[Rfam]
Nucleotides: 593
Stems, first nucleotide, its partner, number of pairs: 001583003005580007014454001016452002020447001021414001027412003031409003036068002042065002048060002075367003085288003090283001094281002100276004116151001118149002125141002128138003159180004166173002185238005198226001200224002206215003248269004253265004290338003297329003304326008342364004346357004369390002372387003392403001394401002420445001422444003428440005460489003463485005469479004496516002498513001500512002526572006539566004548555002
Number, partner (000 for none) and nucleotide at each position: 001583a002582g003581u004000u005580a006579u007578a008577u009576g010575c011574u012000u013000g014454u015000c016452u017451c018000a019000a020447a021414g022000a023000u024000u025000a026000a027412g028411c029410c030000a031409u032408g033407c034000a035000u036068g037067u038000c039000u040000a041000a042065g043064c044000a045000c046000a047000u048060g049059c050000c051000u052000u053000a054000a055000a056000a057000u058000g059049g060048u061000a062000a063000a064043g065042c066000c067037g068036c069000g070000a071000a072000u073000g074000g075367c076366u077365c078000g079000g080000u081000a082000u083000a084000a085288c086287a087286g088000c089000u090283a091000c092000g093000g094281u095280u096000u097000a098000u099000u100276a101275g102274a103273u104000c105000a106000u107000a108000c109000c110000u111000a112000g113000c114000u115000a116151c117000u118149u119148g120000g121000a122000u123000a124000a125141c126140u127000g128138u129137g130136g131000u132000a133000a134000u135000u136130c137129u138128a139000g140126a141125g142000c143000u144000a145000a146000u147000a148119c149118a150000u151116g152000c153000a154000u155000c156000a157000a158000a159180g160179c161178u162177c163000c164000g165000a166173c167172c168000u169000u170000a171000c172167g173166g174000g175000a176000c177162g178161a179160g180159c181000g182000c183000a184000u185238u186237u187236a188235u189234u190000a191000g192000a193000u194000c195000a196000a197000a198226a199000c200224c201223a202000a203000u204000c205000g206215a207214a208213u209000u210000u211000c212000g213208g214207u215206u216000c217000g218000u219000u220000g221000u222000u223201u224200g225000a226198u227000g228000a229000c230000u231000c232000u233000g234189a235188a236187u237186a238185a239000c240000u241000c242000a243000g244000u245000u246000g247000a248269u249268c250267g251266c252000a253265c254264a255263g256262u257000c258000u259000c260000g261000u262256a263255c264254u265253g266251g267250c268249g269248a270000c271000g272000u273103a274102u275101c276100u277000u278000u279000c280095a281094a282000a283090u284000g285000u286087c287086u288085g289000c290338c291337u292336u293000a294000u295000c296000a297329a298328c299327u300000u301000u302000c303000g304326a305325u306324g307323g308322u309321a310320g311319g312000u313000u314000a315000u316000a317000c318000g319311c320310c321309u322308a323307c324306c325305a326304u327299g328298g329297u330000g331000a332000u333000a334000a335000c336292g337291g338290g339000u340000a341000a342364c343363g344362g345361a346357g347356a348355a349354u350000u351000a352000g353000g354349g355348u356347u357346c358000g359000a360000c361345u362344c363343c364342g365077g366076a367075g368000a369390g370389g371000g372387a373386g374385c375000c376000u377000g378000a379000g380000a381000a382000a383000u384000g385374g386373c387372u388000a389370c390369c391000a392403c393000a394401u395400c396000c397000a398000a399000g400395g401394a402000a403392g404000g405000c406000a407033g408032c409031a410029g411028g412027c413000g414021c415000g416000c417000a418000a419000a420445u421000u422444a423443c424442c425000c426000a427000a428440u429439c430438c431437c432436g433000g434000c435000a436432c437431g438430g439429g440428g441000a442424g443423g444422u445420a446000g447020u448000g449000a450000c451017g452016a453000a454014a455000a456000a457000u458000a459000a460489c461488g462487a463485g464484a465483u466482a467481g468000u469479c470478c471477a472476c473000u474000u475000c476472g477471u478470g479469g480000c481467c482466u483465g484464u485463c486000a487462u488461c489460g490000g491000a492000a493000u494000g495000g496516g497515u498513a499000c500512a501511a502000u503000u504000u505000a506000a507000a508000u509000c510000c511501u512500u513498u514000a515497a516496c517000g518000a519000g520000g521000a522000u523000c524000a525000a526572u527571u528570a529569g530568a531567g532000g533000g534000c535000a536000a537000g538000u539566c540565u541564g542563g543000u544000g545000c546000c547000a548555g549554c550000a551000g552000c553000c554549g555548c556000g557000g558000u559000a560000a561000u562000u563542c564541c565540a566539g567531c568530u569529c570528u571527a572526a573000u574011a575010g576009c577008g578007u579006a580005u581003a582002u583001u584000a585000a586000a587000g588000u589000u590000g591000u592000u593000g